[Rfam]
This 106-nucleotide RNA from Canis lupus belongs to the Rfam family "mir-8834 microRNA precursor family". The match comes from Rfam's covariance-model search (72 bits). The family's consensus secondary structure was predicted with RNAalifold. NCBI's taxonomy places the organism under Eukaryota, Metazoa, Theria, Boreoeutheria, Canis lupus. Gene Ontology terms of the family: RISC complex and miRNA-mediated post-transcriptional gene silencing.

RNA sequence: AGGAGGAACAACCGCAGUGGCUGCGGCCAGCUCUGGAGCCCUGGAGUCAGCCCCCGCAGUAACUCCAGAGCUCUCAGUUUGCCGGGCCUGGAGGCUCCGGGGUGGG
Number, nucleotide and partner (000 for none) at each position: 001a000002g098003g097004a096005g095006g000007a000008a000009c090010a089011a000012c086013c085014g000015c000016a000017g000018u000019g079020g078021c077022u076023g075024c000025g074026g073027c000028c000029a072030g071031c070032u069033c068034u067035g066036g065037a064038g000039c000040c000041c059042u058043g057044g000045a000046g000047u000048c000049a000050g000051c000052c000053c000054c000055c000056g000057c043058a042059g041060u000061a000062a000063c000064u037065c036066c035067a034068g033069a032070g031071c030072u029073c026074u025075c023076a022077g021078u020079u019080u000081g000082c000083c000084g000085g013086g012087c000088c000089u010090g009091g000092a000093g000094g000095c005096u004097c003098c002099g000100g000101g000102g000103u000104g000105g000106g000